[Rfam]
Nucleotides: 120
Stems, first nucleotide, its partner, number of pairs: 004113006014103008022093003025088001027086001029085002032082004039054005055077005
Number, partner (000 for none) and nucleotide at each position: 001000u002000u003000c004113c005112c006111c007110g008109u009108u010000c011000g012000a013000u014103g015102u016101u017100c018099u019098a020097a021096a022093g023092a024091a025088u026000a027086u028000u029085g030084u031000a032082g033081u034080g035079g036000u037000a038000a039054c040053g041052g042051u043050u044000c045000g046000c047000c048000a049000a050043a051042a052041c053040c054039g055077u056076u057075g058074a059073u060000u061000g062000u063000c064000u065000a066000g067000u068000a069000c070000c071000a072000c073059a074058u075057c076056a077055a078000u079035c080034u081033a082032c083000c084030a085029c086027a087000c088025a089000a090000u091024u092023u093022u094000c095000a096021u097020u098019u099018a100017g101016a102015a103014c104000u105000g106000a107000c108009a109008a110007c111006g112005g113004g114000u115000u116000u117000u118000u119000u120000g